Small nucleolar RNA SNORD66: a 78-nucleotide RNA from Balaenoptera musculus. From the family's description: snoRNA HBII-142 is part of the C/D family of snoRNAs. It is the human orthologue of the mouse MBII-142 snoRNA and is predicted to guide 2'O-ribose methylation of small 18S rRNA at residue C1272. Lineage of the source: Eukaryota > Vertebrata > Mysticeti > Balaenopteridae > Balaenoptera.
RNA sequence: UAUCUGUGAUCAUUAAUUUUCUGUGUCAGCUUGGCUGGGCCACAGAGUUUCUGUGAGGGUGUCUUUGUGGAUGAGAUG
Numbered sequence: 001u002a003u004c005u006g007u008g009a010u011c012a013u014u015a016a017u018u019u020u021c022u023g024u025g026u027c028a029g030c031u032u033g034g035c036u037g038g039g040c041c042a043c044a045g046a047g048u049u050u051c052u053g054u055g056a057g058g059g060u061g062u063c064u065u066u067g068u069g070g071a072u073g074a075g076a077u078g
Base pairs, nucleotide, nucleotide: 001078002077003076004075
Dot-bracket structure: ((((......................................................................))))